[Rfam]
RNA sequence: AGGCCUGAGCUUGGACAAGGCUACCCACUGAAUUUAAGCAUAUUACUAAGUGGAGGAAAAGAAACUAACAAGGAUUCCCAUAGUAACGGCGAGUGAACAGGGAAUAGCUCAAGUUGAAAAUCAGCGGUUAUCCGUUGAAUUGUAGUCUCUUGAUAAAGUGCCAGUGGUUGCUUCGGACUAAGUCUCUUGGAAUAGGGCACCAAAGAGGGUGAUAGUCCCGUGUUGUCUGAAUGCUAACUACAUACGGUCGAUUAUCAUAGAGUCGCGUUUCUUGCAAUUGAAGCGCUAAGUGGGUGAUAAACUUCAUCUAAAGCUAAAUAUCAGCAAGAGUCCGAUAGAGCACAAGUACCGUGAGGGAAAGAUGAAAAGAACUCUGGAAAGAGAGUUAAAAGGAACUGAAAUUGCUAAGAGGAAAG
Numbered sequence: 001a002g003g004c005c006u007g008a009g010c011u012u013g014g015a016c017a018a019g020g021c022u023a024c025c026c027a028c029u030g031a032a033u034u035u036a037a038g039c040a041u042a043u044u045a046c047u048a049a050g051u052g053g054a055g056g057a058a059a060a061g062a063a064a065c066u067a068a069c070a071a072g073g074a075u076u077c078c079c080a081u082a083g084u085a086a087c088g089g090c091g092a093g094u095g096a097a098c099a100g101g102g103a104a105u106a107g108c109u110c111a112a113g114u115u116g117a118a119a120a121u122c123a124g125c126g127g128u129u130a131u132c133c134g135u136u137g138a139a140u141u142g143u144a145g146u147c148u149c150u151u152g153a154u155a156a157a158g159u160g161c162c163a164g165u166g167g168u169u170g171c172u173u174c175g176g177a178c179u180a181a182g183u184c185u186c187u188u189g190g191a192a193u194a195g196g197g198c199a200c201c202a203a204a205g206a207g208g209g210u211g212a213u214a215g216u217c218c219c220g221u222g223u224u225g226u227c228u229g230a231a232u233g234c235u236a237a238c239u240a241c242a243u244a245c246g247g248u249c250g251a252u253u254a255u256c257a258u259a260g261a262g263u264c265g266c267g268u269u270u271c272u273u274g275c276a277a278u279u280g281a282a283g284c285g286c287u288a289a290g291u292g293g294g295u296g297a298u299a300a301a302c303u304u305c306a307u308c309u310a311a312a313g314c315u316a317a318a319u320a321u322c323a324g325c326a327a328g329a330g331u332c333c334g335a336u337a338g339a340g341c342a343c344a345a346g347u348a349c350c351g352u353g354a355g356g357g358a359a360a361g362a363u364g365a366a367a368a369g370a371a372c373u374c375u376g377g378a379a380a381g382a383g384a385g386u387u388a389a390a391a392g393g394a395a396c397u398g399a400a401a402u403u404g405c406u407a408a409g410a411g412g413a414a415a416g
Stems, first nucleotide, its partner, number of pairs: 024055001025053005035042002065072002076103004086094002106315004113146004118141002121138007152256005159250002162247001164241005170234001172231007182198001184197004201205001208218002265286007292309005349356002372383004

Eukaryotic large subunit ribosomal RNA: a 416-nucleotide part of an RNA from Ascogregarina taiwanensis.
Its family is annotated with ribosome and structural constituent of ribosome in the Gene Ontology.
The base pairs follow the family's consensus structure, which is taken from published work.
Lineage of the source: Eukaryota > Apicomplexa > Conoidasida > Gregarinasina > Ascogregarina.